[Rfam]
RNA sequence: CCUGUGCGUCGACAGGCUAAGAGCGCGACGUCCUGUCGCAACGCCUGCACUAGCACGUCCUGUGCG
Numbered sequence: 001c002c003u004g005u006g007c008g009u010c011g012a013c014a015g016g017c018u019a020a021g022a023g024c025g026c027g028a029c030g031u032c033c034u035g036u037c038g039c040a041a042c043g044c045c046u047g048c049a050c051u052a053g054c055a056c057g058u059c060c061u062g063u064g065c066g
Base pairs, nucleotide, nucleotide: 013047014046015045016044017043025039026038027037028036029035053065054064055063056062
The family of this 66-nucleotide RNA sequence from Lentibacillus cibarius is "Bacillaceae-1 RNA". Taxonomically the source falls in Lentibacillus (Bacteria, Bacilli, Caryophanales, Bacillaceae). The family's consensus secondary structure is taken from published work.